[Rfam]
RNA sequence: CAUAAAUGGGAGCUCUUUUGAGGACAAAGAAAGCACUUUGGAUCGUCUUUUCGCUCAUUGAAGAGUCAUCCUUUGGACUGAAGGGAGCUCCUAAUUUUU
Numbered sequence: 001c002a003u004a005a006a007u008g009g010g011a012g013c014u015c016u017u018u019u020g021a022g023g024a025c026a027a028a029g030a031a032a033g034c035a036c037u038u039u040g041g042a043u044c045g046u047c048u049u050u051u052c053g054c055u056c057a058u059u060g061a062a063g064a065g066u067c068a069u070c071c072u073u074u075g076g077a078c079u080g081a082a083g084g085g086a087g088c089u090c091c092u093a094a095u096u097u098u099u
Stems, first nucleotide, its partner, number of pairs: 007093012022079002025076001027074003
The record is a 99-nucleotide sequence from Amborella trichopoda, which matches "MIR319 microRNA precursor family" in Rfam. Lineage of the source: Eukaryota > Viridiplantae > Magnoliopsida > Amborellales > Amborella. Pairs were carried over by alignment from the consensus structure, which was predicted with RNAalifold.